RNA: Plastid-ycf2 5UTR RNA
RNA sequence: GUGCAUCCAUAAGAAAUUUAACCUAUGAAUUUGCCAAUUAUGAGUUGGAUGCUUUAACCAUUCAGUCAUGAAUGC
Numbered sequence: 001g002u003g004c005a006u007c008c009a010u011a012a013g014a015a016a017u018u019u020a021a022c023c024u025a026u027g028a029a030u031u032u033g034c035c036a037a038u039u040a041u042g043a044g045u046u047g048g049a050u051g052c053u054u055u056a057a058c059c060a061u062u063c064a065g066u067c068a069u070g071a072a073u074g075c
Stems, first nucleotide, its partner, number of pairs: 003075004008070001012024002040069003044066008
Dot-bracket structure: ..((((.(...((.........))...............(((.((((((((.......)))))))))))).))))